[Rfam]
RNA: MAT2A 3'UTR stem loop E
Organism: Scyliorhinus torazame
RNA sequence: CCAGUAUCCCUGGUAGGCCCGAGGUGUCCUACAGAAAGCCCUUGGGGCCCAACCUACAGGGGGUCUGG
Numbered sequence: 001c002c003a004g005u006a007u008c009c010c011u012g013g014u015a016g017g018c019c020c021g022a023g024g025u026g027u028c029c030u031a032c033a034g035a036a037a038g039c040c041c042u043u044g045g046g047g048c049c050c051a052a053c054c055u056a057c058a059g060g061g062g063g064u065c066u067g068g
Base pairs, nucleotide, nucleotide: 001068002067003066004065006064007063008062009061010060011059013057014056015055016054017053018046020044021043022042023041024040026032027031